Acido-Lenti-1 RNA: a 46-nucleotide RNA sequence from Lacipirellula limnantheis.
The family's consensus secondary structure is taken from published work.
[Rfam]
RNA sequence: UCGUGGGCGUAAGCCCACGGCUAAGUGAUGUCGCCGCUCUGCGGCU
Numbered sequence: 001u002c003g004u005g006g007g008c009g010u011a012a013g014c015c016c017a018c019g020g021c022u023a024a025g026u027g028a029u030g031u032c033g034c035c036g037c038u039c040u041g042c043g044g045c046u
Base pairs, nucleotide, nucleotide: 001020002019003018004017005016006015007014008013033045034044035043036042037041
Notes: The source organism's lineage runs through Bacteria, Pseudomonadati, Planctomycetota, Lacipirellulaceae and Lacipirellula.